The family of this 244-nucleotide sequence from Streptomyces sp. ISL-12 is "Streptomyces sRNA 4677". The base pairs follow the family's consensus structure. Rfam's curators write: Located in the intergenic region between anti-sigma factor SCO4677 gene and a putative regulatory protein gene SCO4676. scr4677 expression requires the SCO4677 activity and scr4677 sRNA itself seem to affect the levels of the SCO4676-associated transcripts. NCBI's taxonomy places the organism under Bacteria, Bacillati, Actinomycetota, Streptomycetaceae, Streptomyces. By type it is a small RNA.
[Rfam]
RNA sequence: CGUUGCGGUGUCGCGGGCGAUUACCCAUCCAAGUACUUCGGGGAAAAAGAACCCCACCAAGCCCCACCCCUCCCGCCCGUGAGGCGGUCUCACUCGGGUGGGUGAAUGUCGGCGGUCUGGCUGGAUUUCCGGCCCUCAACUCCCGCACGCUCAGGGCGACAAGACCGCAGACAUGCGUCGGCCCCCGCCGGGACUCACGAUCCCACUGCGAGGGCCUGACCACCGAGGAAGUGAGCGCUUCCUG
Numbered sequence: 001c002g003u004u005g006c007g008g009u010g011u012c013g014c015g016g017g018c019g020a021u022u023a024c025c026c027a028u029c030c031a032a033g034u035a036c037u038u039c040g041g042g043g044a045a046a047a048a049g050a051a052c053c054c055c056a057c058c059a060a061g062c063c064c065c066a067c068c069c070c071u072c073c074c075g076c077c078c079g080u081g082a083g084g085c086g087g088u089c090u091c092a093c094u095c096g097g098g099u100g101g102g103u104g105a106a107u108g109u110c111g112g113c114g115g116u117c118u119g120g121c122u123g124g125a126u127u128u129c130c131g132g133c134c135c136u137c138a139a140c141u142c143c144c145g146c147a148c149g150c151u152c153a154g155g156g157c158g159a160c161a162a163g164a165c166c167g168c169a170g171a172c173a174u175g176c177g178u179c180g181g182c183c184c185c186c187g188c189c190g191g192g193a194c195u196c197a198c199g200a201u202c203c204c205a206c207u208g209c210g211a212g213g214g215c216c217u218g219a220c221c222a223c224c225g226a227g228g229a230a231g232u233g234a235g236c237g238c239u240u241c242c243u244g
Stems, first nucleotide, its partner, number of pairs: 007224004016077004090105006121154004180216005186210003190204004227242005